[Rfam]
Nucleotides: 144
Base pairs, nucleotide, nucleotide: 002143003142005140007138008137009136010135011134012133013132016129017128018127019126020125021124024121025120026119
Number, partner (000 for none) and nucleotide at each position: 001000u002143u003142u004000u005140g006000a007138g008137g009136g010135a011134a012133u013132g014000u015000u016129g017128u018127c019126u020125g021124g022000c023000u024121c025120g026119a027000g028000g029000a030000c031000u032000c033000u034000c035000u036000u037000u038000u039000g040000a041000u042000c043000c044000a045000u046000u047000u048000u049000u050000c051000c052000u053000c054000a055000a056000a057000u058000u059000a060000u061000a062000u063000c064000c065000a066000u067000a068000g069000a070000u071000c072000u073000a074000a075000g076000c077000a078000u079000a080000u081000g082000u083000g084000g085000a086000u087000a088000u089000a090000g091000a092000g093000a094000g095000u096000a097000g098000a099000u100000u101000g102000a103000u104000c105000a106000u107000c108000a109000g110000c111000u112000a113000g114000u115000g116000u117000c118000g119026u120025c121024g122000g123000a124021c125020c126019a127018g128017g129016c130000u131000u132013c133012a134011u135010u136009c137008c138007c139000c140005c141000c142003a143002a144000u